[Rfam]
Annotation
Shown here is a 354-nucleotide RNA from Clostridium sp. CAG:7, a member of the family "Bacterial RNase P class A". About the family: Ribonuclease P (RNase P) is a ubiquitous endoribonuclease, found in archaea, bacteria and eukarya as well as chloroplasts and mitochondria. Gene Ontology terms of the family: ribonuclease P activity, dimeric ribonuclease P complex and tRNA processing. It scores 310 bits against the family's covariance model. Lineage of the source: Bacteria > Bacillati > Eubacteriales > Clostridiaceae > Clostridium. The base pairs follow the family's consensus structure, which is taken from published work.
RNA sequence: UGAGUAAGACAGAUGGUCGCUGCUGCGACACCGAGAGGACGCAGGAGAGGAAAGUCCGGGCUUCACAGGGCAGGAUGCCAGAUAACGUCUGGCGGGGGUGACCCUAGGGACAGUGCAACAGAAAUAUACCGCCCGCUGCAUUUGCAGCAGGUAAGGGUGGAAUGGCAGUGUAAGAGACUACCGCCCGGCUGGUAACAGGCGGGGCACAUGUAAACCCCAUCCGAAGCAAGACCAAACAGAGAGCAUAUGGCGGCCCGUCAGCUUUCGGGUAGGUUGCUUGAUGCUGCUGGCGACAGUAGUACUAGAUAGAUGACCAUCCAACGACAUAACCCGGCUUACCGUUUUACUCACAAC
Numbered sequence: 001u002g003a004g005u006a007a008g009a010c011a012g013a014u015g016g017u018c019g020c021u022g023c024u025g026c027g028a029c030a031c032c033g034a035g036a037g038g039a040c041g042c043a044g045g046a047g048a049g050g051a052a053a054g055u056c057c058g059g060g061c062u063u064c065a066c067a068g069g070g071c072a073g074g075a076u077g078c079c080a081g082a083u084a085a086c087g088u089c090u091g092g093c094g095g096g097g098g099u100g101a102c103c104c105u106a107g108g109g110a111c112a113g114u115g116c117a118a119c120a121g122a123a124a125u126a127u128a129c130c131g132c133c134c135g136c137u138g139c140a141u142u143u144g145c146a147g148c149a150g151g152u153a154a155g156g157g158u159g160g161a162a163u164g165g166c167a168g169u170g171u172a173a174g175a176g177a178c179u180a181c182c183g184c185c186c187g188g189c190u191g192g193u194a195a196c197a198g199g200c201g202g203g204g205c206a207c208a209u210g211u212a213a214a215c216c217c218c219a220u221c222c223g224a225a226g227c228a229a230g231a232c233c234a235a236a237c238a239g240a241g242a243g244c245a246u247a248u249g250g251c252g253g254c255c256c257g258u259c260a261g262c263u264u265u266c267g268g269g270u271a272g273g274u275u276g277c278u279u280g281a282u283g284c285u286g287c288u289g290g291c292g293a294c295a296g297u298a299g300u301a302c303u304a305g306a307u308a309g310a311u312g313a314c315c316a317u318c319c320a321a322c323g324a325c326a327u328a329a330c331c332c333g334g335c336u337u338a339c340c341g342u343u344u345u346a347c348u349c350a351c352a353a354c
Stems, first nucleotide, its partner, number of pairs: 001350010012318007020047002023044005052337003056334005061226004068256004073222005078092005093107001094105004108217002113215002115211003129156002131152003135148005164182002167179003183205001184203004189198003230275004239266006248260004282301008